The record is a 62-nucleotide RNA from Sapajus apella, which matches "U7 small nuclear RNA" in Rfam. It scores 59 bits against the family's covariance model. Animal histone pre-mRNAs are spliced by a different mechanism than nuclear pre-mRNAs and self-splicing introns. This processing involves the U7 snRNP, which contains only one RNA species: U7. The 5' end of U7 RNA is thought to base-pair to a conserved spacer element downstream of the cleavage site in histone pre-mRNA. This family contains a number of annotated U7 pseudogenes.
RNA sequence: AAAUGUUACAGCUCUUGUAGAAUUUUUCUAGUGGGUUUUCUGUUUUUUAUUGGGAAGCCACA
Numbered sequence: 001a002a003a004u005g006u007u008a009c010a011g012c013u014c015u016u017g018u019a020g021a022a023u024u025u026u027u028c029u030a031g032u033g034g035g036u037u038u039u040c041u042g043u044u045u046u047u048u049a050u051u052g053g054g055a056a057g058c059c060a061c062a
Base pairs, nucleotide, nucleotide: 034059035058036057037056038055039054040053041052042051044049